Shown here is a 79-nucleotide RNA sequence from Pedobacter cryophilus, a member of the family "Flavo-1 RNA". The match comes from Rfam's covariance-model search (50 bits).
RNA sequence: AAAUAGCCCUGAUUGAAGCGGAAAACCCGCAGCCCAAUUUUUAUUGGGCGAGGAUUUGUAGCGCAAAGCAGGAUUAGCG
Numbered sequence: 001a002a003a004u005a006g007c008c009c010u011g012a013u014u015g016a017a018g019c020g021g022a023a024a025a026c027c028c029g030c031a032g033c034c035c036a037a038u039u040u041u042u043a044u045u046g047g048g049c050g051a052g053g054a055u056u057u058g059u060a061g062c063g064c065a066a067a068g069c070a071g072g073a074u075u076a077g078c079g
Stems, first nucleotide, its partner, number of pairs: 009071003013067002018062002023057003027053002032049006